[Rfam]
RNA sequence: UGUAAACGUUUUACAAUGUAUAUGUUCUUGAAUUUCUUUGGGAUAAAUAAGAGUCGCCUUCAAUUUGUUUAGAUCGGAGAUUACUCUUAUUCAUCUCAAUGAAAAAUAUAAAAAAAGGAGGAAAGUCAAGA
Number, nucleotide and partner (000 for none) at each position: 001u000002g000003u000004a000005a000006a025007c024008g023009u022010u000011u020012u000013a000014c000015a000016a000017u000018g000019u000020a011021u000022a009023u008024g007025u006026u125027c000028u123029u122030g000031a000032a000033u104034u103035u102036c101037u000038u099039u098040g000041g096042g095043a094044u093045a000046a091047a090048u089049a088050a087051g086052a085053g084054u083055c000056g000057c000058c072059u071060u000061c000062a000063a000064u000065u000066u000067g000068u000069u000070u000071a059072g058073a000074u000075c000076g000077g000078a000079g000080a000081u000082u000083a054084c053085u052086c051087u050088u049089a048090u047091u046092c000093a044094u043095c042096u041097c000098a039099a038100u000101g036102a035103a034104a033105a000106a000107u000108a000109u000110a000111a000112a000113a000114a000115a000116a000117g000118g000119a000120g000121g000122a029123a028124a000125g026126u000127c000128a000129a000130g000131a000